The family of this 116-nucleotide sequence from Salimicrobium jeotgali is "SAM riboswitch aptamer (S box leader)". The SAM riboswitch is found upstream of a number of genes which code for proteins involved in methionine or cysteine biosynthesis in Gram-positive bacteria. The base pairs follow the family's consensus structure, which is taken from published work. Lineage of the source: Bacteria > Bacillati > Bacilli > Caryophanales > Salimicrobium. Gene Ontology term of the family: regulation of gene expression.
RNA sequence: UUCUUAUCCAGAGAGGUGGAGGGACUGGCCCUUUGAAACCUCGGCAGCGGAACUGAUGGAAUUCCAUCGGAAACCGUGCCAAUUCCAGCAGGUGCAUCGCACUUGAAAGAUGAGAA
Number, nucleotide and partner (000 for none) at each position: 001u116002u115003c114004u113005u112006a111007u110008c109009c000010a000011g000012a000013g042014a041015g040016g039017u038018g000019g000020a000021g031022g030023g029024a000025c088026u087027g086028g085029c023030c022031c021032u000033u000034u000035g000036a000037a000038a017039c016040c015041u014042c013043g080044g079045c078046a077047g000048c076049g075050g000051a000052a000053c069054u000055g000056a000057u000058g000059g000060a000061a000062u000063u000064c000065c000066a000067u000068c000069g053070g000071a000072a000073a000074c000075c049076g048077u046078g045079c044080c043081a000082a000083u000084u108085c028086c027087a026088g025089c105090a104091g103092g102093u101094g100095c000096a000097u000098c000099g000100c094101a093102c092103u091104u090105g089106a000107a000108a084109g008110a007111u006112g005113a004114g003115a002116a001